[Rfam]
RNA sequence: UAGUAGAUGCACCCUGAUUCAAGCGCCCAUCACACUUUAUGAGUGUGGGCGUUUUUUU
Dot-bracket structure: ..((......))............(((((((.((.....)).).))))))........
Numbered sequence: 001u002a003g004u005a006g007a008u009g010c011a012c013c014c015u016g017a018u019u020c021a022a023g024c025g026c027c028c029a030u031c032a033c034a035c036u037u038u039a040u041g042a043g044u045g046u047g048g049g050c051g052u053u054u055u056u057u058u
Stems, first nucleotide, its partner, number of pairs: 003012002025050006031043001033041002
Notes: The family of this 58-nucleotide RNA from Limnospira maxima is "Nitrogen stress-induced RNA 1". A reference for the family is Ionescu et al. (2010), "Heterocyst-specific transcription of NsiR1, a non-coding RNA encoded in a tandem array of direct repeats in cyanobacteria", J Mol Biol. A search with the family's covariance model found it, with a score of 44 bits. The family has 17 seed sequences and 962 matches in Rfam 15.1. Taxonomically the source falls in Limnospira maxima (Bacteria, Oscillatoriophycideae, Sirenicapillariaceae, Limnospira).